[Rfam]
RNA sequence: UGAGCAUGAUGAUGAUUGUUUUAUUAGUCCGAUUAUAUAUGAAUGGAUCUAUAACCUCCUACUCAUUCUGA
Numbered sequence: 001u002g003a004g005c006a007u008g009a010u011g012a013u014g015a016u017u018g019u020u021u022u023a024u025u026a027g028u029c030c031g032a033u034u035a036u037a038u039a040u041g042a043a044u045g046g047a048u049c050u051a052u053a054a055c056c057u058c059c060u061a062c063u064c065a066u067u068c069u070g071a
Stems, first nucleotide, its partner, number of pairs: 006066004028046001030041001

Background: Rfam assigns this 71-nucleotide sequence from Cannabis sativa to the family "Small nucleolar RNA Z105". Rfam links the family to the GO terms RNA processing and nucleolus. Pairs were carried over by alignment from the consensus structure, which was predicted with CMfinder. The family's RNA type in Rfam is C/D-box small nucleolar RNA. The match comes from Rfam's covariance-model search (63 bits). Rfam 15.1 lists 621 matches to the family in 204 species. The literature on the family includes a 2003 paper in Nucleic Acids Res by Chen et al., "The high diversity of snoRNAs in plants: identification and comparative study of 120 snoRNA genes from Oryza sativa".